[Rfam]
RNA: Lysine riboswitch aptamer
Organism: Natranaerovirga hydrolytica
RNA sequence: UGAUACGGUAGAGGUGCGUUUUUAAUGAGUCGAUAAUUGGAUGUAUUCAGGUACAUAAGAAGAUUAUCAAAAGGUAAAAGCGCCGAAGAGAAGAAAAACCUGUAACUUUCUUUUCUGGGGGUAUGGUUAAGAACUAUAUCACUGUCAUCCAUUGAUGAAGUGCUACCUAAAGA
Number, nucleotide and partner (000 for none) at each position: 001u000002g000003a000004u000005a000006c000007g167008g166009u165010a164011g163012a000013g000014g000015u000016g083017c082018g081019u080020u079021u078022u077023u076024a075025a000026u000027g000028a000029g000030u000031c000032g068033a067034u066035a065036a064037u063038u062039g000040g000041a000042u000043g000044u000045a000046u000047u000048c000049a000050g000051g000052u000053a000054c000055a000056u000057a000058a000059g000060a000061a000062g038063a037064u036065u035066a034067u033068c032069a000070a000071a000072a000073g000074g000075u024076a023077a022078a021079a020080g019081c018082g017083c016084c000085g000086a000087a116088g115089a114090g113091a112092a111093g110094a109095a108096a107097a000098a000099c000100c000101u000102g000103u000104a000105a000106c000107u096108u095109u094110c093111u092112u091113u090114u089115c088116u087117g143118g142119g000120g140121g139122u138123a137124u136125g135126g134127u133128u000129a000130a000131g000132a000133a127134c126135u125136a124137u123138a122139u121140c120141a000142c118143u117144g000145u158146c157147a156148u155149c154150c000151a000152u000153u000154g149155a148156u147157g146158a145159a000160g000161u000162g000163c011164u010165a009166c008167c007168u000169a000170a000171a000172g000173a000